RNA sequence: AUGCCCCGCGCGGGAGAGCGUCGGCGCGCGUCCUGCCACAGCCGGCCGCGUGAGCAGGCCGCCGAAGGAGCAAACCCUCCCCGGGAAUCUCUCAGGCAUCCGUACCGCGUGGGGUCA
Numbered sequence: 001a002u003g004c005c006c007c008g009c010g011c012g013g014g015a016g017a018g019c020g021u022c023g024g025c026g027c028g029c030g031u032c033c034u035g036c037c038a039c040a041g042c043c044g045g046c047c048g049c050g051u052g053a054g055c056a057g058g059c060c061g062c063c064g065a066a067g068g069a070g071c072a073a074a075c076c077c078u079c080c081c082c083g084g085g086a087a088u089c090u091c092u093c094a095g096g097c098a099u100c101c102g103u104a105c106c107g108c109g110u111g112g113g114g115u116c117a
Stems, first nucleotide, its partner, number of pairs: 006112008020059003061097003064093002068091003075083001
Dot-bracket structure: .....((((((((......(((..................................))).(((((..(((....(.......).....))))).))).......)))))))).....